RNA: Small nucleolar RNA SNORD16
RNA sequence: UGUUAUGAUGGUGUAAUUUGCGUCUGACACUGCAGUGACGGUUUGCCGGCUGUCUUAUAACUGGCACUGUGGGUUGACGAAACAAAAGUUCUGAUA
Dot-bracket structure: ..(.................((((.....(.(..(((((((........))))).....)).....).)......))))................)